[Rfam]
A member of the RNA family "Bacterial RNase P class A" from Shewanella denitrificans, 385 nucleotides long. Rfam's curators put it in the seed alignment. Its family is annotated with tRNA processing, dimeric ribonuclease P complex and ribonuclease P activity in the Gene Ontology. It is annotated as a ribozyme.
RNA sequence: CGAGUUGGCCAGACAGUCGCCGCGUUCUUCGGAACGGGGAGGAAAGUCCGGGCUCCACAGAGCAGGGUGCCAGGUAACGCCUGGGCGGUGCGAACCGACGACAAGUGCAGCAGAGAGGAGACCGCCAUUUUAAGCUUCGGCUAUAAAUGGUAAGGGUGAAAGGGUGCGGUAAGAGCGCACCGUGCGGCUAGUAAUAGUCCGUAGCAAGGUAAACUCCACCCGGAGCAAGACCAAAUAGGGUUCCAGUGCUUACUUAGGUAAGCUGAUGCGUGGCUCGCGUUGGAACCGGGUAGGUUGCUUGAGCCUGUGAGCGAUUGCAGGCCUAGAUGAAUGACUGUCGCUCCUCACGGAGAGACAAGACCCGGCUUAUAGGCCAACUCACCUC
Numbered sequence: 001c002g003a004g005u006u007g008g009c010c011a012g013a014c015a016g017u018c019g020c021c022g023c024g025u026u027c028u029u030c031g032g033a034a035c036g037g038g039g040a041g042g043a044a045a046g047u048c049c050g051g052g053c054u055c056c057a058c059a060g061a062g063c064a065g066g067g068u069g070c071c072a073g074g075u076a077a078c079g080c081c082u083g084g085g086c087g088g089u090g091c092g093a094a095c096c097g098a099c100g101a102c103a104a105g106u107g108c109a110g111c112a113g114a115g116a117g118g119a120g121a122c123c124g125c126c127a128u129u130u131u132a133a134g135c136u137u138c139g140g141c142u143a144u145a146a147a148u149g150g151u152a153a154g155g156g157u158g159a160a161a162g163g164g165u166g167c168g169g170u171a172a173g174a175g176c177g178c179a180c181c182g183u184g185c186g187g188c189u190a191g192u193a194a195u196a197g198u199c200c201g202u203a204g205c206a207a208g209g210u211a212a213a214c215u216c217c218a219c220c221c222g223g224a225g226c227a228a229g230a231c232c233a234a235a236u237a238g239g240g241u242u243c244c245a246g247u248g249c250u251u252a253c254u255u256a257g258g259u260a261a262g263c264u265g266a267u268g269c270g271u272g273g274c275u276c277g278c279g280u281u282g283g284a285a286c287c288g289g290g291u292a293g294g295u296u297g298c299u300u301g302a303g304c305c306u307g308u309g310a311g312c313g314a315u316u317g318c319a320g321g322c323c324u325a326g327a328u329g330a331a332u333g334a335c336u337g338u339c340g341c342u343c344c345u346c347a348c349g350g351a352g353a354g355a356c357a358a359g360a361c362c363c364g365g366c367u368u369a370u371a372g373g374c375c376a377a378c379u380c381a382c383c384u385c
Base pairs, nucleotide, nucleotide: 002380003379004378005377006376007375008374009373010372011370012339013338014337015336016335017334018333020039021038023036024035025034026033027032044368045367046366048365049364050363051362052361053225054224055223056222060275063272065221066220067219068218069217070084071083072082073081074080085099086097087096088095089094100216101215105214106213107210108209122155123154124151125150126149127148128147129146130145163181164180165179166178167177168176182205183203184202185201186200187199188197189196190195229296230295231294232293239287240286241285242284243283244282266280267279268278269277270276303322304321305320306319307318308317309316310315
Dot-bracket structure: .(((((((((((((((((.((.(((((....))))).))....[[[.[[[[[((((...[..[.((((((((((.....)))))(((((....)))).)((...((((.............(((((((((..............)))))))..)).......((((((.......))))))(((((((((....))).))))).)...))..)))))))))))))...((((......((((((.....................(((((.]..]))))).)))))).....))))......((((((((....))))))))..........))))))).....................]]]]]]]].).))))))))).....